Shown here is a 113-nucleotide sequence from Lentivirus simimdef, a member of the family "HIV pol-1 stem loop". The family's consensus secondary structure is taken from published work. A reference for the family is Wang et al. (2008), "Evidence of a novel RNA secondary structure in the coding region of HIV-1 pol gene", RNA. NCBI's taxonomy places the organism under Viruses, Artverviricota, Revtraviricetes, Lentivirus, Lentivirus simimdef.
[Rfam]
Nucleotides: 113
Stems, first nucleotide, its partner, number of pairs: 004110003008106013022092001031059002034056002037053002064089002067086002
Number, partner (000 for none) and nucleotide at each position: 001000c002000a003000g004110g005109g006108u007000u008106c009105a010104g011103u012102u013101u014100u015099a016098g017097u018096g019095g020094g021000a022092c023000c024000a025000a026000c027000a028000c029000c030000a031059g032058u033000a034056a035055a036000u037053a038052u039000u040000a041000u042000u043000g044000g045000c046000a047000g048000g049000a050000a051000u052038a053037u054000u055035u056034u057000a058032a059031c060000a061000c062000a063000a064089a065088u066000u067086g068085g069000a070000u071000g072000u073000a074000c075000u076000u077000u078000a079000a080000a081000u082000u083000u084000u085068c086067c087000u088065a089064u090000c091000a092022g093000c094020u095019c096018u097017a098016u099015u100014a101013a102012a103011a104010c105009u106008g107000u108006a109005c110004c111000a112000g113000u